[Rfam]
RNA sequence: UAGGCAGAAGCCUGUUGGUUGUGGCAUAUAGCUGUUAACUAUACUAUCGUGGGAUCGAAACCCAUCUGCCUAG
Number, nucleotide and partner (000 for none) at each position: 001u072002a071003g070004g069005c068006a067007g066008a000009a000010g025011c024012c023013u000014g000015u000016u000017g000018g000019u000020u000021g000022u000023g012024g011025c010026a000027u043028a042029u041030a040031g039032c000033u000034g000035u000036u000037a000038a000039c031040u030041a029042u028043a027044c000045u000046a000047u000048c000049g065050u064051g063052g062053g061054a000055u000056c000057g000058a000059a000060a000061c053062c052063c051064a050065u049066c007067u006068g005069c004070c003071u002072a001073g000

Rfam assigns this 73-nucleotide sequence from Sinosuthora webbiana to the family "tRNA". Taxonomically the source falls in Sinosuthora (Eukaryota, Chordata, Telluraves, Passeriformes). Rfam's curators write: Transfer RNA (tRNA) molecules are approximately 80 nucleotides in length. The base pairs follow the family's consensus structure, which is taken from published work. Rfam links the family to the GO term triplet codon-amino acid adaptor activity.